RNA sequence: AGGGGUCUUCAGGGCAGGGUGUAAUUCCCUACCGGCGGUGACUAGGUUGUCUUCCUAGAAGUCCGCGAGCGCAAGCUGAUGUGGUGCAAAUCCACAACCGACAGUGAUAGUCUGGAUGGGAGGAGACGAAG
Numbered sequence: 001a002g003g004g005g006u007c008u009u010c011a012g013g014g015c016a017g018g019g020u021g022u023a024a025u026u027c028c029c030u031a032c033c034g035g036c037g038g039u040g041a042c043u044a045g046g047u048u049g050u051c052u053u054c055c056u057a058g059a060a061g062u063c064c065g066c067g068a069g070c071g072c073a074a075g076c077u078g079a080u081g082u083g084g085u086g087c088a089a090a091u092c093c094a095c096a097a098c099c100g101a102c103a104g105u106g107a108u109a110g111u112c113u114g115g116a117u118g119g120g121a122g123g124a125g126a127c128g129a130a131g
Stems, first nucleotide, its partner, number of pairs: 005127006017029003031111002033100002035066004061098002069076002080096005102114003
Shown here is a 131-nucleotide RNA sequence from Streptococcus sp. DD12, a member of the family "FMN riboswitch aptamer (RFN element)". It scores 108 bits against the family's covariance model. The source organism's lineage runs through Bacteria, Bacillati, Bacilli, Lactobacillales and Streptococcus.